[Rfam]
The family of this 136-nucleotide sequence from Gossypium australe is "MIR396 microRNA precursor family". The organism belongs to Gossypium, within Eukaryota. It scores 91 bits against the family's covariance model. For this family Rfam cites "Computational identification of plant microRNAs and their targets, including a stress-induced miRNA" (Jones-Rhoades and Bartel, Mol Cell, 2004).

RNA sequence: CUUGGUAUUCUUCCACAGCUUUCUUGAACUGCAAUUUCAUGUAAUCAGAUCAUUCAUUCAUUCUUUGUCGUUGAUGGUGCUGCAUACAUACGAGUACGUUGUUGCGGUUCAAUAAAGCUGUGGGAAGAUACAAACA
Numbered sequence: 001c002u003u004g005g006u007a008u009u010c011u012u013c014c015a016c017a018g019c020u021u022u023c024u025u026g027a028a029c030u031g032c033a034a035u036u037u038c039a040u041g042u043a044a045u046c047a048g049a050u051c052a053u054u055c056a057u058u059c060a061u062u063c064u065u066u067g068u069c070g071u072u073g074a075u076g077g078u079g080c081u082g083c084a085u086a087c088a089u090a091c092g093a094g095u096a097c098g099u100u101g102u103u104g105c106g107g108u109u110c111a112a113u114a115a116a117g118c119u120g121u122g123g124g125a126a127g128a129u130a131c132a133a134a135c136a
Stems, first nucleotide, its partner, number of pairs: 003133001005131003013123003017119006024112004029107007
Dot-bracket structure: ..(.(((.....(((.((((((.((((.(((((((.................................................................))))))).)))).)))))).))).....))).)...